Rfam assigns this 127-nucleotide RNA sequence from Octodon degus to the family "Small nucleolar RNA SNORA61". Lineage of the source: Eukaryota > Deuterostomia > Gnathostomata > Mammalia > Octodon. The match comes from Rfam's covariance-model search (79 bits). Rfam's curators write: ACA61 is a member of the H/ACA class of snoRNA that guide the sites of modification of uridines to pseudouridines. Pairs were carried over by alignment from the consensus structure, which was predicted with PFOLD. The family's RNA type in Rfam is H/ACA-box small nucleolar RNA.
[Rfam]
RNA sequence: ACCCUCCAGUUACCUUUCUCGUUUGAUCUGUACACUGGUCCUGGUGAUGUAAAGAAGAGCUAAUGCUGGGGCUGGCCUCCAGGCCUUCUAGGCUGAUGUAUAGCAUGUGGGCUAGUUUCAAACAGUG
Numbered sequence: 001a002c003c004c005u006c007c008a009g010u011u012a013c014c015u016u017u018c019u020c021g022u023u024u025g026a027u028c029u030g031u032a033c034a035c036u037g038g039u040c041c042u043g044g045u046g047a048u049g050u051a052a053a054g055a056a057g058a059g060c061u062a063a064u065g066c067u068g069g070g071g072c073u074g075g076c077c078u079c080c081a082g083g084c085c086u087u088c089u090a091g092g093c094u095g096a097u098g099u100a101u102a103g104c105a106u107g108u109g110g111g112c113u114a115g116u117u118u119c120a121a122a123c124a125g126u127g
Stems, first nucleotide, its partner, number of pairs: 004059003019047005025040004072115007087105001089103001